[Rfam]
RNA sequence: CUCUUAUCAAGAGAGGCGGAGGGACUGGCCCUAUGAUGCCCAGCAACCGUUCCAUAAUGGAAUUGGUGCUAAAUCCUGCAAAACAAGCAAUUGUUUUGACAGAUAAGAG
Numbered sequence: 001c002u003c004u005u006a007u008c009a010a011g012a013g014a015g016g017c018g019g020a021g022g023g024a025c026u027g028g029c030c031c032u033a034u035g036a037u038g039c040c041c042a043g044c045a046a047c048c049g050u051u052c053c054a055u056a057a058u059g060g061a062a063u064u065g066g067u068g069c070u071a072a073a074u075c076c077u078g079c080a081a082a083a084c085a086a087g088c089a090a091u092u093g094u095u096u097u098g099a100c101a102g103a104u105a106a107g108a109g
Stems, first nucleotide, its partner, number of pairs: 001109008013041001015040003021031003025078001027076002042070004047066002049063004074101001079098006
RNA: SAM riboswitch aptamer (S box leader)
Organism: Sutcliffiella cohnii